This 99-nucleotide RNA from Undibacterium sp. KW1 belongs to the Rfam family "Bacterial small signal recognition particle RNA".
RNA sequence: GGCGGGCCCCUGCGCAUUGCGGCAUGGCCAAUCUGGUCAGGUCGGGAACGAAGCAGCCACAGUCAUUUCCCGCAAGUGCCGCAGAUCAGGCUCGCCAAC
Numbered sequence: 001g002g003c004g005g006g007c008c009c010c011u012g013c014g015c016a017u018u019g020c021g022g023c024a025u026g027g028c029c030a031a032u033c034u035g036g037u038c039a040g041g042u043c044g045g046g047a048a049c050g051a052a053g054c055a056g057c058c059a060c061a062g063u064c065a066u067u068u069c070c071c072g073c074a075a076g077u078g079c080c081g082c083a084g085a086u087c088a089g090g091c092u093c094g095c096c097a098a099c
Stems, first nucleotide, its partner, number of pairs: 004093005010084005015076001017075006024066005034059004042051003
Record summary: A reference for the family is Rosenblad et al. (2003), "SRPDB: Signal Recognition Particle Database", Nucleic Acids Res.